[Rfam]
RNA sequence: GAAGACCCUGUUGAGCUUGACUCUAGUCCGACUUUGUGAAGACACAUGAAGGGUGUAGCAUAGGUGGGAGCGCAAGCGCCAUUGAAAUACCACUACUUUUAUCGUUUCUUUACUUAUUCAGUAAAGCGGAGAGCGGGGUGCAAGCCCCUCGAUUCUGGAGUUAAGCGGCCGCAUGGCUCCGUUCGUUAGCCCCUCUUCACCGGGGGGCGCGGGCGGGGUCGGUCGCGAUCCGCUCUGAAGACAGUGUCAGGCGGGGAGUUUGACUGGGGCGGUACAUCUGUCAAAAGGUAACGCAGGUGUCCUAAGGCGAGCUCAGCGAGGACGGAAACCUCGCGUAGAGCAAAAGGGCAAAAGCUCGCUUGAUUUUGAUUUUCAGUACGAAUACAGACCGUGAAAGCGUGGCCUAUCGAUCCUUUUGACUUUAAGAGUUUUAAGCAAGAGGUGUCAGAAAAGUUACCACAGGGAUAACUGGCUUGUGGCAGCCAAGCGUUCAUAGCGACGUUGCUUUUUGAUCCUUCGAUGUCGGCUCUUCCUAUCAUUGCGAAGCAGAAUUCGCCAAGCGUUGGAUUGUUCACCCACUAAUAGGGAACGUGAGCUGGG
Numbered sequence: 001g002a003a004g005a006c007c008c009u010g011u012u013g014a015g016c017u018u019g020a021c022u023c024u025a026g027u028c029c030g031a032c033u034u035u036g037u038g039a040a041g042a043c044a045c046a047u048g049a050a051g052g053g054u055g056u057a058g059c060a061u062a063g064g065u066g067g068g069a070g071c072g073c074a075a076g077c078g079c080c081a082u083u084g085a086a087a088u089a090c091c092a093c094u095a096c097u098u099u100u101a102u103c104g105u106u107u108c109u110u111u112a113c114u115u116a117u118u119c120a121g122u123a124a125a126g127c128g129g130a131g132a133g134c135g136g137g138g139u140g141c142a143a144g145c146c147c148c149u150c151g152a153u154u155c156u157g158g159a160g161u162u163a164a165g166c167g168g169c170c171g172c173a174u175g176g177c178u179c180c181g182u183u184c185g186u187u188a189g190c191c192c193c194u195c196u197u198c199a200c201c202g203g204g205g206g207g208c209g210c211g212g213g214c215g216g217g218g219u220c221g222g223u224c225g226c227g228a229u230c231c232g233c234u235c236u237g238a239a240g241a242c243a244g245u246g247u248c249a250g251g252c253g254g255g256g257a258g259u260u261u262g263a264c265u266g267g268g269g270c271g272g273u274a275c276a277u278c279u280g281u282c283a284a285a286a287g288g289u290a291a292c293g294c295a296g297g298u299g300u301c302c303u304a305a306g307g308c309g310a311g312c313u314c315a316g317c318g319a320g321g322a323c324g325g326a327a328a329c330c331u332c333g334c335g336u337a338g339a340g341c342a343a344a345a346g347g348g349c350a351a352a353a354g355c356u357c358g359c360u361u362g363a364u365u366u367u368g369a370u371u372u373u374c375a376g377u378a379c380g381a382a383u384a385c386a387g388a389c390c391g392u393g394a395a396a397g398c399g400u401g402g403c404c405u406a407u408c409g410a411u412c413c414u415u416u417u418g419a420c421u422u423u424a425a426g427a428g429u430u431u432u433a434a435g436c437a438a439g440a441g442g443u444g445u446c447a448g449a450a451a452a453g454u455u456a457c458c459a460c461a462g463g464g465a466u467a468a469c470u471g472g473c474u475u476g477u478g479g480c481a482g483c484c485a486a487g488c489g490u491u492c493a494u495a496g497c498g499a500c501g502u503u504g505c506u507u508u509u510u511g512a513u514c515c516u517u518c519g520a521u522g523u524c525g526g527c528u529c530u531u532c533c534u535a536u537c538a539u540u541g542c543g544a545a546g547c548a549g550a551a552u553u554c555g556c557c558a559a560g561c562g563u564u565g566g567a568u569u570g571u572u573c574a575c576c577c578a579c580u581a582a583u584a585g586g587g588a589a590c591g592u593g594a595g596c597u598g599g600g
Stems, first nucleotide, its partner, number of pairs: 007463004012459002014455005020259004027251002030248003036113007044105002046102007063094005070077002117239005127232004135148005165226007262275001263273003276298006301402002307359006313339002316334006340349002364388003369383004390399003413441006421435004472513001474511001476510001478506006487497002524599001525597004529591001530588005537562001541556005564578003568574001